[Rfam]
RNA sequence: UAAGCCUUUUCUUUGGUGAUCUAGCUGUAUGACUAUCACUCACUGACUUAUAAACAGCUCAUAAAGCUAGAUUACCAAAGCAAAGAGCCA
Numbered sequence: 001u002a003a004g005c006c007u008u009u010u011c012u013u014u015g016g017u018g019a020u021c022u023a024g025c026u027g028u029a030u031g032a033c034u035a036u037c038a039c040u041c042a043c044u045g046a047c048u049u050a051u052a053a054a055c056a057g058c059u060c061a062u063a064a065a066g067c068u069a070g071a072u073u074a075c076c077a078a079a080g081c082a083a084a085g086a087g088c089c090a
Base pairs, nucleotide, nucleotide: 001090007084008083009082011080012079013078014077015076016075017074018073019072020071021070022069023068024067025066026065028063029062030061031060032059
RNA: mir-9/mir-79 microRNA precursor family